[Rfam]
RNA: Nitrogen stress-induced RNA 1
Organism: Leptolyngbya sp. FACHB-261
RNA sequence: UGGUAGAUGCACCCUGAUUCACCCCCAGAAACCCUUCCCGGGUCUCCGGGGGGUUUUUGU
Numbered sequence: 001u002g003g004u005a006g007a008u009g010c011a012c013c014c015u016g017a018u019u020c021a022c023c024c025c026c027a028g029a030a031a032c033c034c035u036u037c038c039c040g041g042g043u044c045u046c047c048g049g050g051g052g053g054u055u056u057u058u059g060u
Stems, first nucleotide, its partner, number of pairs: 002013003022052005028046002031043004